[Rfam]
RNA: TPP riboswitch aptamer (THI element)
Organism: Parathalassolituus penaei
RNA sequence: GGUCGUCCCAGGGGGUGGCCCAACAGGCCUGAGAUGCGCAGCGCGAACCCCUCGAACCUGAUCCGGUUAGUACCGGCGUAGGAAUGGGCGAGAGCGGCACC
Numbered sequence: 001g002g003u004c005g006u007c008c009c010a011g012g013g014g015g016u017g018g019c020c021c022a023a024c025a026g027g028c029c030u031g032a033g034a035u036g037c038g039c040a041g042c043g044c045g046a047a048c049c050c051c052u053c054g055a056a057c058c059u060g061a062u063c064c065g066g067u068u069a070g071u072a073c074c075g076g077c078g079u080a081g082g083a084a085u086g087g088g089c090g091a092g093a094g095c096g097g098c099a100c101c
Base pairs, nucleotide, nucleotide: 007088008087009086010085011051012050013049014048016045017029018028019027020026036044037043038042057082058081059080060079063076064075065074066073
Dot-bracket structure: ......((((((((.(((((.....))))......(((...))))..)))).....((((..((((......))))..))))..)))).............